[Rfam]
Nucleotides: 586
Stems, first nucleotide, its partner, number of pairs: 001476002003473003007470007015460002019424005024317001026315008034306002040055004064301007077124002079121005088103006106115003127290002130288004136284002138279003141275001143273002148187006154163003166179004193267004198236007208225002212223003239258002242255005321376006333364003338357002343352003383414001388409007430452007479585001481582001484578002489572004494567003499562006507554004515547001517545004523540003528536002
Number, partner (000 for none) and nucleotide at each position: 001476u002475g003473a004472c005471g006000g007470g008469g009468g010467c011466c012465c013464g014000c015460a016459c017000a018000a019424g020423c021422a022421g023420u024317g025000g026315a027314g028313c029312a030311u031310g032309u033308g034306g035305u036000u037000u038000a039000a040055u041054u042053c043052g044000a045000a046000g047000c048000a049000a050000c051000g052043c053042g054041a055040a056000g057000a058000a059000c060000c061000u062000u063000a064301c065300c066299a067298g068297g069296g070295c071000u072000u073000g074000a075000c076000a077124u078123c079121c080120c081119u082118c083117u084000g085000a086000c087000c088103g089102g090101u091100g092099u093098a094000g095000a096000g097000a098093u099092a100091c101090a102089c103088c104000u105000u106115c107114c108113c109000u110000u111000c112000g113108g114107g115106g116000c117083a118082g119081a120080g121079g122000a123078g124077a125000c126000a127290g128289g129000u130288g131287g132286u133285g134000c135000a136284u137283g138279g139278u140277u141275g142000u143273c144272g145000u146000c147000a148187g149186c150185u151184c152183g153182u154163g155162u156161c157000g158000u159000g160000a161156g162155a163154u164000g165000u166179u167178g168177g169176g170000u171000u172000a173000a174000g175000u176169c177168c178167c179166g180000c181000a182153a183152c184151g185150a186149g187148c188000g189000c190000a191000a192000c193267c194266c195265u196264u197000g198236a199235c200234c201233u202232g203231u204230g205000u206000u207000a208225c209224c210000a211000g212223c213222a214221c215000g216000u217000a218000a219000u220000g221214g222213u223212g224209g225208g226000g227000a228000c229000u230204c231203a232202c233201a234200g235199g236198u237000g238000a239258c240257u241000g242255c243254c244253g245252g246251c247000g248000u249000a250000a251246g252245u253244c254243g255242g256000a257240g258239g259000a260000a261000g262000g263000u264196g265195g266194g267193g268000a269000u270000g271000a272144c273143g274000u275141c276000a277140a278139a279138u280000c281000a282000u283137c284136a285133u286132g287131c288130c289128c290127c291000u292000u293000a294000u295070g296069u297068c298067c299066u300065g301064g302000g303000c304000a305035a306034c307000a308033c309032a310031c311030g312029u313028g314027c315026u316000a317024c318000a319000a320000u321376g322375g323374g324373c325372g326371g327000a328000a329000c330000a331000a332000c333364g334363g335362g336000a337000a338357g339356c340000g341000a342000g343352a344351c345350c346000g347000c348000g349000a350345g351344g352343u353000g354000g355000a356339g357338c358000g359000a360000a361000c362335c363334c364333c365000u366000g367000a368000a369000a370000a371326c372325c373324g374323u375322u376321c377000g378000u379000a380000g381000u382000u383414c384000g385000g386000a387000u388409u389408g390407c391406a392405g393404g394403c395000u396000g397000c398000a399000a400000c401000c402000c403394g404393c405392c406391u407390g408389c409388a410000u411000g412000a413000a414383g415000c416000c417000g418000g419000a420023a421022u422021u423020g424019c425000u426000a427000g428000u429000a430452a431451u432450c433449g434448c435447g436446g437000a438000u439000c440000a441000g442000c443000a444000u445000g446436c447435c448434g449433c450432g451431g452430u453000g454000a455000a456000u457000c458000c459016g460015u461000u462000c463000c464013c465012g466011g467010g468009c469008c470007u471005u472004g473003u474000a475002c476001a477000c478000a479585c480000c481582g482000c483000c484578c485577g486000u487000c488000a489572c490571a491570c492569c493000a494567c495566g496565a497000g498000a499562g500561u501560u502559g503558g504557c505000a506000a507554c508553a509552c510551c511000c512000g513000a514000a515547g516000u517545c518544g519543g520542u521000g522000g523540g524539g525538u526000a527000a528536c529535c530000u531000u532000a533000u534000a535529g536528g537000g538525g539524c540523c541000a542520g543519c544518c545517g546000c547515c548000g549000a550000a551510g552509g553508u554507g555000g556000g557504g558503c559502u560501g561500a562499u563000g564000a565496u566495u567494g568000g569492g570491g571490u572489g573000a574000a575000g576000u577485c578484g579000u580000a581000a582481c583000a584000a585479g586000g
Background:
Rfam assigns this 586-nucleotide part of an RNA from Paenalicyclobacillus ferrooxydans to the family "Bacterial small subunit ribosomal RNA". The source organism's lineage runs through Bacteria, Bacilli, Caryophanales, Alicyclobacillaceae and Paenalicyclobacillus.